[Rfam]
RNA sequence: CGACCGCAUGCGGGAGAAUCGGGAUCAAACCCGAUGCCGAAGGAGCAAUGCCCCGGAAACUCUCAGGCCACCGGACCGCAUGCGGACA
Numbered sequence: 001c002g003a004c005c006g007c008a009u010g011c012g013g014g015a016g017a018a019u020c021g022g023g024a025u026c027a028a029a030c031c032c033g034a035u036g037c038c039g040a041a042g043g044a045g046c047a048a049u050g051c052c053c054c055g056g057a058a059a060c061u062c063u064c065a066g067g068c069c070a071c072c073g074g075a076c077c078g079c080a081u082g083c084g085g086a087c088a
Stems, first nucleotide, its partner, number of pairs: 006083008019034004036068003039064002043062003049055002
About this RNA: The family of this 88-nucleotide RNA from Pontibaca methylaminivorans is "Glycine riboswitch aptamer". Rfam's curators write: This family represents the bacterial glycine riboswitch. Glycine riboswitches usually consist of two metabolite-binding aptamers domains with similar structures in tandem. Lineage of the source: Bacteria > Pseudomonadati > Pseudomonadota > Roseobacteraceae > Pontibaca. On this family, see Mandal et al., Science 2004: "A glycine-dependent riboswitch that uses cooperative binding to control gene expression".